[Rfam]
RNA: Small nucleolar RNA SNORD34
Nucleotides: 083
Stems, first nucleotide, its partner, number of pairs: 001083002004080001006078002
Number, partner (000 for none) and nucleotide at each position: 001083u002082u003000u004080a005000a006078c007077c008000u009000a010000u011000g012000a013000u014000g015000a016000g017000u018000u019000g020000c021000a022000a023000a024000a025000u026000u027000u028000a029000u030000u031000g032000c033000c034000u035000a036000c037000a038000u039000u040000g041000u042000u043000u044000g045000a046000c047000u048000a049000a050000c051000c052000u053000g054000u055000g056000a057000g058000a059000a060000a061000c062000a063000a064000u065000u066000g067000c068000a069000a070000c071000a072000u073000c074000u075000g076000a077007g078006g079000a080004u081000a082002a083001a